[Rfam]
Rfam assigns this 125-nucleotide sequence from Erwinia tasmaniensis to the family "RtT RNA". The base pairs follow the family's consensus structure, which is taken from published work. It is annotated as a cis-regulatory element. NCBI's taxonomy places the organism under Bacteria, Pseudomonadati, Gammaproteobacteria, Erwiniaceae, Erwinia. Rfam links the family to the GO term cellular response to amino acid starvation. From the family's description: This family represents a bacterial cis-regulatory element known as RtT RNA. The exact function of RtT is unknown although it is thought that it may be involved in changing the cellular response in relation to amino acid starvation. On this family, see Bosl and Kersten, Nucleic Acids Res 1991: "A novel RNA product of the tyrT operon of Escherichia coli". A search with the family's covariance model found it, with a score of 72 bits.

RNA sequence: GCUAUGCGCAAUUCGGGCAGGGUUCGAACCUGCAGCAGGUCGAGUCGAGCGCAGUGAGACAACGUUGCCAGCGGCAACGACCCGCAGGGCGAGGCGCAGCCGACGUCAUCCUGCACAACCCACCA
Numbered sequence: 001g002c003u004a005u006g007c008g009c010a011a012u013u014c015g016g017g018c019a020g021g022g023u024u025c026g027a028a029c030c031u032g033c034a035g036c037a038g039g040u041c042g043a044g045u046c047g048a049g050c051g052c053a054g055u056g057a058g059a060c061a062a063c064g065u066u067g068c069c070a071g072c073g074g075c076a077a078c079g080a081c082c083c084g085c086a087g088g089g090c091g092a093g094g095c096g097c098a099g100c101c102g103a104c105g106u107c108a109u110c111c112u113g114c115a116c117a118a119c120c121c122a123c124c125a
Stems, first nucleotide, its partner, number of pairs: 015116001017114005023108001033091001036088001040086001041084002046056002063079006